A member of the RNA family "Small nucleolar RNA SNORD58" from Ovis aries, 66 nucleotides long. It scores 77 bits against the family's covariance model. Rfam describes the family as follows. snoRNA U58 is found in introns 1, 3 and 6 of the ribosomal protein RPL17 gene in humans. Rfam links the family to the GO terms RNA processing and nucleolus. Pairs were carried over by alignment from the consensus structure, which was predicted with PFOLD.

RNA sequence: CUGCGAUGAUGUGUUUCUUAGGACACCUUUGGAUUCACCAUGAAAAUAAAUCCAUUUCUGAGCAGC
Numbered sequence: 001c002u003g004c005g006a007u008g009a010u011g012u013g014u015u016u017c018u019u020a021g022g023a024c025a026c027c028u029u030u031g032g033a034u035u036c037a038c039c040a041u042g043a044a045a046a047u048a049a050a051u052c053c054a055u056u057u058c059u060g061a062g063c064a065g066c
Base pairs, nucleotide, nucleotide: 001065002064003063004062
Its Rfam clan is "SNORD58 clan". The organism belongs to Ovis, within Eukaryota. It is annotated as a C/D-box small nucleolar RNA. For this family Rfam cites "Purified box C/D snoRNPs are able to reproduce site-specific 2'-O-methylation of target RNA in vitro" (Galardi et al., Mol Cell Biol, 2002).